[Rfam]
RNA sequence: GGUCCUGUAGUGUAGUUGGUUCAUCACGUCUGUUUCACAGUGUGGCAUAUUGUGUGACCUGGAUCACAGGAGGUCCCCGGUUCGAGCCCGGGCGGGACCA
Numbered sequence: 001g002g003u004c005c006u007g008u009a010g011u012g013u014a015g016u017u018g019g020u021u022c023a024u025c026a027c028g029u030c031u032g033u034u035u036c037a038c039a040g041u042g043u044g045g046c047a048u049a050u051u052g053u054g055u056g057a058c059c060u061g062g063a064u065c066a067c068a069g070g071a072g073g074u075c076c077c078c079g080g081u082u083c084g085a086g087c088c089c090g091g092g093c094g095g096g097a098c099c100a
Stems, first nucleotide, its partner, number of pairs: 001099007010027003029070005076092005

A member of the RNA family "tRNA" from Grifola frondosa, 100 nucleotides long.
The family's RNA type in Rfam is transfer RNA.
Pairs were carried over by alignment from the consensus structure, which is taken from published work.
The source organism's lineage runs through Eukaryota, Opisthokonta, Basidiomycota, Polyporales and Grifola.